Record summary: This 107-nucleotide RNA sequence from Metabacillus indicus belongs to the Rfam family "SAM riboswitch aptamer (S box leader)". Pairs were carried over by alignment from the consensus structure, which is taken from published work. Taxonomically the source falls in Metabacillus (Bacteria, Bacillati, Bacilli, Bacillaceae).
RNA sequence: AAUCUAUCAAGAGUGAACGAGAGAUCUGGCUCCAUGACUUCACAGCAGCCGCCGCUUGCCGGAAAGGUGCUCCAACCAGCAAAGCACGAUGCUUUGGCCGAUAAAGA
Numbered sequence: 001a002a003u004c005u006a007u008c009a010a011g012a013g014u015g016a017a018c019g020a021g022a023g024a025u026c027u028g029g030c031u032c033c034a035u036g037a038c039u040u041c042a043c044a045g046c047a048g049c050c051g052c053c054g055c056u057u058g059c060c061g062g063a064a065a066g067g068u069g070c071u072c073c074a075a076c077c078a079g080c081a082a083a084g085c086a087c088g089a090u091g092c093u094u095u096g097g098c099c100g101a102u103a104a105a106g107a
Stems, first nucleotide, its partner, number of pairs: 003105001005103004013043005021032003026079004044071004049067002052062003080096006